This 101-nucleotide sequence from Otolemur garnettii belongs to the Rfam family "Y RNA". Rfam classes the family as a non-coding RNA gene.
RNA sequence: GGCUGGUCUAAGUGCAGUUGUGUUUACAACUAAUUGAUGACAACCAGUUAUAGAUUCCUUUGUUCCUUCACCACUCCCACUACUCUACAUGGCUAGUAAAA
Numbered sequence: 001g002g003c004u005g006g007u008c009u010a011a012g013u014g015c016a017g018u019u020g021u022g023u024u025u026a027c028a029a030c031u032a033a034u035u036g037a038u039g040a041c042a043a044c045c046a047g048u049u050a051u052a053g054a055u056u057c058c059u060u061u062g063u064u065c066c067u068u069c070a071c072c073a074c075u076c077c078c079a080c081u082a083c084u085c086u087a088c089a090u091g092g093c094u095a096g097u098a099a100a101a
Base pairs, nucleotide, nucleotide: 002097003096004095005094006093007092008091010090014086016081017080018079020077022076028064029063030062032060033059
Background
The organism belongs to Otolemur, within Eukaryota.